A member of the RNA family "Lysine riboswitch aptamer" from Lentibacillus cibarius, 185 nucleotides long. The family's consensus secondary structure is taken from published work. Riboswitches are metabolite binding domains within certain messenger RNAs that serve as precision sensors for their corresponding targets. A reference for the family is Rodionov et al. (2003), "Regulation of lysine biosynthesis and transport genes in bacteria: yet another RNA riboswitch?", Nucleic Acids Res. Rfam 15.1 lists 3,224 matches to the family in 1,923 species.
[Rfam]
RNA sequence: AGUAAGGAUAGAGGUGCAAAGACCAUCAGUACACAAAAAGAGGGAAAUGAGUCCCGUUGAUGAUUGUGGAAAGGGGAAUUUGCCGAAGCUUCAAAGCGUCUCAUUCUCUUUGAAGCUGGGACUGUGUUGAAGAAACGCAGUACUGUCAUAUAGGAAGUGAAACUAUAUGAAGGGCUAUCUUACGU
Numbered sequence: 001a002g003u004a005a006g007g008a009u010a011g012a013g014g015u016g017c018a019a020a021g022a023c024c025a026u027c028a029g030u031a032c033a034c035a036a037a038a039a040g041a042g043g044g045a046a047a048u049g050a051g052u053c054c055c056g057u058u059g060a061u062g063a064u065u066g067u068g069g070a071a072a073g074g075g076g077a078a079u080u081u082g083c084c085g086a087a088g089c090u091u092c093a094a095a096g097c098g099u100c101u102c103a104u105u106c107u108c109u110u111u112g113a114a115g116c117u118g119g120g121a122c123u124g125u126g127u128u129g130a131a132g133a134a135a136c137g138c139a140g141u142a143c144u145g146u147c148a149u150a151u152a153g154g155a156a157g158u159g160a161a162a163c164u165a166u167a168u169g170a171a172g173g174g175c176u177a178u179c180u181u182a183c184g185u
Stems, first nucleotide, its partner, number of pairs: 006180006016083005023076002032068005039061001087117010098106001118144002121141008146170007